[Rfam]
RNA sequence: UGAUUCGAAAGGCAAGACAUCUGAAAAGAUGAUCACGCAAAGCUUCAGGUCUAACGGGGAAACCCUACGAUAGCUGGGCUGCCAUC
Numbered sequence: 001u002g003a004u005u006c007g008a009a010a011g012g013c014a015a016g017a018c019a020u021c022u023g024a025a026a027a028g029a030u031g032a033u034c035a036c037g038c039a040a041a042g043c044u045u046c047a048g049g050u051c052u053a054a055c056g057g058g059g060a061a062a063c064c065c066u067a068c069g070a071u072a073g074c075u076g077g078g079c080u081g082c083c084a085u086c
Base pairs, nucleotide, nucleotide: 012038013037017033018031019030020029021028022027041080042079043078044077046076047075048074049071050070051069056065057064058063
The record is an 86-nucleotide RNA from Arsukibacterium sp. MJ3, which matches "c-di-GMP-I riboswitch aptamer" in Rfam. The organism belongs to Arsukibacterium, within Bacteria. A search with the family's covariance model found it, with a score of 61 bits. Gene Ontology term of the family: cyclic-di-GMP binding.